[Rfam]
Shown here is a 69-nucleotide sequence from Carlito syrichta, a member of the family "Small nucleolar RNA U2-30".
It is annotated as a C/D-box small nucleolar RNA.
NCBI's taxonomy places the organism under Eukaryota, Opisthokonta, Craniata, Haplorrhini, Carlito.
For this family Rfam cites "Guide RNAs with 5' Caps and Novel Box C/D snoRNA-like Domains for Modification of snRNAs in Metazoa" (Tycowski et al., Curr Biol, 2004).
RNA sequence: GAACAGUGAUGAAAGGUUUUACUACUGACCUUUGUAACUAUGAAUUUUUCUACACUUGACCUGAGCUCA
Numbered sequence: 001g002a003a004c005a006g007u008g009a010u011g012a013a014a015g016g017u018u019u020u021a022c023u024a025c026u027g028a029c030c031u032u033u034g035u036a037a038c039u040a041u042g043a044a045u046u047u048u049u050c051u052a053c054a055c056u057u058g059a060c061c062u063g064a065g066c067u068c069a
Base pairs, nucleotide, nucleotide: 001068002067004065012033013032014031015030016029017028018027